[Rfam]
RNA: Small nucleolar RNA Z103
Organism: Cocos nucifera
RNA sequence: GAGGAAUAUGAUAAUCCUUUCACAUAUGAUGGAUGCUAAAUAUAAUGUGUUUCAUUUGCAUUCUAUUUGGAAAAGUCAAACCAGGGCUUUCAUCCUC
Numbered sequence: 001g002a003g004g005a006a007u008a009u010g011a012u013a014a015u016c017c018u019u020u021c022a023c024a025u026a027u028g029a030u031g032g033a034u035g036c037u038a039a040a041u042a043u044a045a046u047g048u049g050u051u052u053c054a055u056u057u058g059c060a061u062u063c064u065a066u067u068u069g070g071a072a073a074a075g076u077c078a079a080a081c082c083a084g085g086g087c088u089u090u091c092a093u094c095c096u097c
Stems, first nucleotide, its partner, number of pairs: 001097005